[Rfam]
RNA sequence: AGUGUUGUUGCGAUAGUAAUUCUGCUCAGUACGAGAGGAACCGCAGAUUCAGACAUUUGGUUCAUGCGCUUGGCUGAUAAGCCAAUGGUGCGAAGCUACCCAUCCUGGGGGUUAUGACUGAACGCCUCUAAGUCAGAAUCCCGCCUAAGCAGUGACGAUACUCUGGUGCCAUGCCGUCGCGGAGGCAAAGUUAGACGGUCGCUCGCUCGACCGUCUGCAGAGCCGCCUCCGACCUUCGUGUGGCAGAACCGCGCUAAGCUGAGACAGCAUCCGUCCGAGGCCGGUGCUAAAUCAUUUGCAGACGACCCUAGUUGAAGAUCGAGGUGUCGUAGCCACUAGAGCAGUUCUCACUGCGAUCUGUUGAAAGUUAGCCUCCAGAUCUACGAUUUGU
Numbered sequence: 001a002g003u004g005u006u007g008u009u010g011c012g013a014u015a016g017u018a019a020u021u022c023u024g025c026u027c028a029g030u031a032c033g034a035g036a037g038g039a040a041c042c043g044c045a046g047a048u049u050c051a052g053a054c055a056u057u058u059g060g061u062u063c064a065u066g067c068g069c070u071u072g073g074c075u076g077a078u079a080a081g082c083c084a085a086u087g088g089u090g091c092g093a094a095g096c097u098a099c100c101c102a103u104c105c106u107g108g109g110g111g112u113u114a115u116g117a118c119u120g121a122a123c124g125c126c127u128c129u130a131a132g133u134c135a136g137a138a139u140c141c142c143g144c145c146u147a148a149g150c151a152g153u154g155a156c157g158a159u160a161c162u163c164u165g166g167u168g169c170c171a172u173g174c175c176g177u178c179g180c181g182g183a184g185g186c187a188a189a190g191u192u193a194g195a196c197g198g199u200c201g202c203u204c205g206c207u208c209g210a211c212c213g214u215c216u217g218c219a220g221a222g223c224c225g226c227c228u229c230c231g232a233c234c235u236u237c238g239u240g241u242g243g244c245a246g247a248a249c250c251g252c253g254c255u256a257a258g259c260u261g262a263g264a265c266a267g268c269a270u271c272c273g274u275c276c277g278a279g280g281c282c283g284g285u286g287c288u289a290a291a292u293c294a295u296u297u298g299c300a301g302a303c304g305a306c307c308c309u310a311g312u313u314g315a316a317g318a319u320c321g322a323g324g325u326g327u328c329g330u331a332g333c334c335a336c337u338a339g340a341g342c343a344g345u346u347c348u349c350a351c352u353g354c355g356a357u358c359u360g361u362u363g364a365a366a367g368u369u370a371g372c373c374u375c376c377a378g379a380u381c382u383a384c385g386a387u388u389u390g391u
Base pairs, nucleotide, nucleotide: 004159005158006157007156008155009154010153011152014147015146016145019049021047022046023045024044025043052104053103058098059097060096065092066091067090068089069088070085071084072083073082074081075080108142109141110140115135116134117133118132119131168285169284170283173281174280175279289389290388291387292386293385294312295311296310298308317381318380319379320378321376322374323373324372327366334360335359338357341354342353343352344351345350
Description: Shown here is a 391-nucleotide part of an RNA from Herdmania momus, a member of the family "Eukaryotic large subunit ribosomal RNA". The family's consensus secondary structure is taken from published work. Rfam's curators put it in the seed alignment. Lineage of the source: Eukaryota > Metazoa > Eumetazoa > Stolidobranchia > Herdmania. On this family, see Cannone et al., BMC Bioinformatics 2002: "The comparative RNA web (CRW) site: an online database of comparative sequence and structure information for ribosomal, intron, and other RNAs".